[Rfam]
Rfam assigns this 101-nucleotide RNA from Acetobacterium paludosum to the family "TPP riboswitch aptamer (THI element)". A search with the family's covariance model found it, with a score of 68 bits. Rfam links the family to the GO term thiamine pyrophosphate binding. The base pairs follow the family's consensus structure, which is taken from published work.
RNA sequence: AUUUAUUUGCGGGGGGACUAGAUGCUAGUUGAGAAGGUUAAAACCUGACCCUUUGAACCUGUUAGUUAAUACUAACGUAGGGAAGCAGAGCGUUUCGGCUA
Dot-bracket structure: .....(((((((((.((((((...)))))......(((....))))..)))).....((((((((......))))..))))...)))))............
The source organism's lineage runs through Bacteria, Bacillota, Eubacteriales, Eubacteriaceae and Acetobacterium.